[Rfam]
RNA sequence: GGGGCCGUGGGGUAGCUUGGCCUAUCCUGCGGGCUUUGGGAGCCCGUGACCCGAGUUCAAAUCUCGGCGGCCCCA
Numbered sequence: 001g002g003g004g005c006c007g008u009g010g011g012g013u014a015g016c017u018u019g020g021c022c023u024a025u026c027c028u029g030c031g032g033g034c035u036u037u038g039g040g041a042g043c044c045c046g047u048g049a050c051c052c053g054a055g056u057u058c059a060a061a062u063c064u065c066g067g068c069g070g071c072c073c074c075a
Base pairs, nucleotide, nucleotide: 001074002073003072004071005070006069007068010028011027012026030046031045032044033043034042051067052066053065054064055063
RNA: tRNA
Organism: Thermococcus sibiricus